[Rfam]
Rfam assigns this 172-nucleotide sequence to the family "RAGATH-14 RNA". Pairs were carried over by alignment from the consensus structure, which is taken from published work. The family's RNA type in Rfam is small RNA. The sequence is in the family's curated seed alignment.
RNA sequence: AGAAGUUGCCUAGUAUAAGCCGCUAGAUUAAUAAGGCUAGCUGAUAAGAGGAUACCUCAUAAGGGUAUAUUUCCUACCUCGAACUCAGUCGCAAGAAUAUGGAUUAGCUACCUAUAUUCUUAGUGAACGUUAGUAACGUAGAUAGCGUAGGAAACUAUCUAAAUAACUCUCC
Dot-bracket structure: .........((((.........))))..............((((...(((((((((.......)))))..[[[[[[))))....))))(((((((.((((((.........)))))).))).))))((((.....))))..((((..]]]]]].))))..............